[Rfam]
RNA sequence: UACCUGAUUGAUUCUGUCAGUGGUGAUAAGCUUAUGUCCAAGAUUAAGCCAUGCAAGUAAAAGUGCCAGCUACUCGGUUUUCGGACCUUAGUUGAACUGCGGAUUACUCAUUGCAAUGUUUUGAAAAAAGCUGAAAAGACGUGUAAGGGAUAUAUACGGCAAAUCUGGGUCUAAUACAGGAUUACGUACACCUAGCUAUGGAUAAAGAAAUCGAAGAGAAUGGCCGUCCACUUAUUGCGGAUUGACAGCCGGAACCAACACCAUUUUCUGGUUGGUGGUGUAUUGGUGCAAAUAGGACAAUGGUUGCGGAUGAUAGUUGUCGGGCGUCGGAGAAUACGCUUGAGAAACGGCGAAUACUUCUAAGGAAGGCAGCAGGCUCGCAAAUUACCCAUACUUCUAAUUUUGAGCGGGUGGUAGUGACAACAAAUACCGAAACUUUCCUCAUACGAGGAGCUAUUGGAAUGAUUUUCUUUUAAACCGAGAUCGCAGGAUCUAUGAGAGGGCAAGUCUGGUGCCAGCAGCCGCGGUAACUCCAGCUCUUAAAGUUUAUACCAUAUCUGCUA
Number, nucleotide and partner (000 for none) at each position: 001u000002a000003c000004c020005u019006g018007a017008u016009u000010g000011a000012u000013u000014c000015u000016g008017u007018c006019a005020g004021u000022g553023g552024u551025g000026a550027u549028a548029a547030g546031c545032u544033u000034a000035u425036g424037u423038c000039c000040a000041a418042g379043a000044u000045u000046a000047a000048g377049c376050c375051a000052u374053g373054c372055a000056a000057g100058u099059a000060a000061a000062a098063g097064u096065g000066c000067c000068a000069g092070c091071u090072a089073c000074u000075c000076g000077g000078u000079u000080u000081u000082c000083g000084g000085a000086c000087c000088u000089u072090a071091g070092u069093u000094g000095a000096a064097c063098u062099g058100c057101g000102g000103a000104u000105u000106a000107c332108u331109c330110a000111u000112u000113g000114c000115a000116a000117u257118g256119u000120u000121u253122u252123g000124a000125a000126a000127a000128a000129a000130g249131c248132u247133g246134a000135a000136a000137a000138g000139a000140c000141g000142u000143g000144u000145a000146a000147g000148g177149g000150a000151u000152a000153u000154a170155u169156a000157c167158g166159g165160c000161a000162a000163a000164u000165c159166u158167g157168g000169g155170u154171c000172u000173a000174a000175u000176a000177c148178a000179g000180g000181a000182u000183u000184a000185c000186g000187u000188a000189c000190a000191c000192c000193u000194a000195g224196c223197u222198a221199u220200g000201g000202a000203u000204a000205a000206a000207g000208a000209a000210a000211u000212c000213g000214a000215a000216g000217a000218g000219a000220a199221u198222g197223g196224c195225c000226g000227u000228c240229c239230a000231c237232u000233u000234a000235u000236u000237g231238c000239g229240g228241a000242u000243u000244g000245a000246c133247a132248g131249c130250c000251g000252g122253a121254a000255c000256c118257a117258a000259c000260a304261c303262c302263a000264u000265u000266u000267u295268c000269u000270g000271g000272u292273u291274g000275g000276u290277g289278g000279u000280g000281u000282a000283u000284u000285g000286g000287u000288g000289c277290a276291a273292a272293u000294a000295g267296g000297a000298c000299a000300a000301u000302g262303g261304u260305u000306g000307c329308g328309g327310a000311u322312g321313a320314u319315a000316g000317u000318u000319g314320u313321c312322g311323g000324g000325c000326g000327u309328c308329g307330g109331a108332g107333a000334a355335u354336a000337c352338g351339c350340u000341u000342g000343a000344g000345a000346a000347a000348c000349g000350g339351c338352g337353a000354a335355u334356a000357c368358u367359u366360c365361u000362a000363a000364g000365g360366a359367a358368g357369g000370c000371a000372g054373c053374a052375g050376g049377c048378u000379c042380g000381c000382a000383a000384a000385u416386u000387a415388c414389c413390c000391a000392u000393a000394c000395u407396u406397c405398u000399a403400a000401u000402u000403u399404u000405g397406a396407g395408c000409g000410g000411g000412u000413g389414g388415u387416a385417g000418u041419g000420a000421c000422a000423a037424c036425a035426a000427a000428u000429a000430c000431c459432g458433a457434a455435a000436c453437u452438u000439u000440c451441c450442u449443c448444a000445u000446a000447c000448g443449a442450g441451g440452a437453g436454c000455u434456a000457u433458u432459g431460g000461a000462a000463u000464g000465a000466u486467u000468u483469u000470c482471u481472u480473u000474u000475a000476a000477a000478c000479c000480g472481a471482g470483a468484u000485c000486g466487c000488a000489g000490g000491a000492u000493c000494u000495a000496u542497g541498a540499g539500a538501g537502g000503g000504c000505a000506a000507g000508u000509c536510u535511g534512g533513u000514g000515c000516c000517a000518g525519c524520a000521g000522c000523c000524g519525c518526g000527g000528u000529a000530a000531c000532u000533c512534c511535a510536g509537c501538u500539c499540u498541u497542a496543a000544a032545g031546u030547u029548u028549a027550u026551a024552c023553c022554a000555u000556a000557u000558c000559u000560g000561c000562u000563a000
RNA: Eukaryotic small subunit ribosomal RNA, nucleotides 1 to 563
Organism: Pelodera punctata